[Rfam]
RNA sequence: UAUGAUUAGCUAUUUAUAGCUAGGAUUGUAUAGAGGGUAGUGGCAGUCGCCCCAACUCCGACAAAUGCGUGAGAAUUUAAUUUUUUCGUACAUUUGUAAGGUGAGAAACAACUAACAAGUUGGAAACUUUGAUUUUAUCAAGAAAUUGAGGAACUGU
Number, nucleotide and partner (000 for none) at each position: 001u000002a000003u000004g000005a000006u023007u022008a021009g020010c019011u018012a017013u000014u000015u000016a000017u012018a011019g010020c009021u008022a007023g006024g000025a000026u000027u000028g000029u000030a000031u000032a000033g000034a000035g052036g051037g050038u049039a000040g000041u000042g000043g157044c156045a155046g154047u000048c000049g038050c037051c036052c035053c000054a000055a000056c105057u104058c103059c000060g000061a097062c096063a095064a094065a093066u092067g091068c000069g089070u088071g000072a000073g085074a084075a083076u000077u000078u000079a000080a000081u000082u000083u075084u074085u073086u000087c000088g070089u069090a000091c067092a066093u065094u064095u063096g062097u061098a000099a000100g000101g000102u000103g058104a057105g056106a000107a000108a000109c122110a121111a120112c119113u118114a000115a000116c000117a000118a113119g112120u111121u110122g109123g000124a000125a000126a000127c151128u150129u149130u148131g147132a146133u145134u144135u143136u000137a000138u000139c000140a000141a000142g000143a135144a134145a133146u132147u131148g130149a129150g128151g127152a000153a000154c046155u045156g044157u043
The record is a 157-nucleotide RNA sequence, which matches "IS605-orfB-II RNA" in Rfam. The family's consensus secondary structure is taken from published work. The sequence is in the family's curated seed alignment. It is annotated as a small RNA.